[Rfam]
RNA: Xanthomonadaceae sRNA asX1
Organism: Pseudoxanthomonas wuyuanensis
RNA sequence: CACCCGAUGUGGCAAGCGACCAGGGGCGCGGGUUGGAAUUGGAACAGGGGCCAGCCAGGCGCACGUCGGGGAUGCCGGGGCCGGUAGUCGGGGGACUGCCGGCCCUUUUUUA
Numbered sequence: 001c002a003c004c005c006g007a008u009g010u011g012g013c014a015a016g017c018g019a020c021c022a023g024g025g026g027c028g029c030g031g032g033u034u035g036g037a038a039u040u041g042g043a044a045c046a047g048g049g050g051c052c053a054g055c056c057a058g059g060c061g062c063a064c065g066u067c068g069g070g071g072a073u074g075c076c077g078g079g080g081c082c083g084g085u086a087g088u089c090g091g092g093g094g095a096c097u098g099c100c101g102g103c104c105c106u107u108u109u110u111u112a
Base pairs, nucleotide, nucleotide: 003070004069005068006067007066008065009064010063011062012060013059016029017028018027031056032055033054034053035052036051039048040047077106078105079104080103081102082101083100084099085098086097087096088095089094